[Rfam]
Nucleotides: 113
Base pairs, nucleotide, nucleotide: 001113002112003111004110005109
Number, partner (000 for none) and nucleotide at each position: 001113g002112a003111u004110g005109c006000a007000a008000u009000g010000a011000u012000g013000a014000g015000a016000u017000g018000a019000a020000g021000c022000a023000c024000a025000c026000g027000a028000g029000g030000g031000u032000g033000u034000g035000u036000u037000a038000a039000g040000g041000g042000c043000a044000g045000u046000g047000g048000a049000a050000g051000a052000g053000a054000c055000c056000u057000a058000a059000a060000a061000a062000a063000u064000c065000u066000c067000u068000u069000c070000c071000g072000u073000g074000a075000g076000u077000c078000u079000u080000a081000u082000a083000a084000c085000c086000a087000a088000a089000a090000c091000g092000a093000c094000u095000u096000c097000u098000c099000c100000u101000u102000c103000c104000a105000c106000u107000g108000a109005g110004c111003a112002u113001c

Shown here is a 113-nucleotide RNA sequence from Macleaya cordata, a member of the family "Small nucleolar RNA Z152/R70/R12/".
Pairs were carried over by alignment from the consensus structure, which was predicted with PFOLD.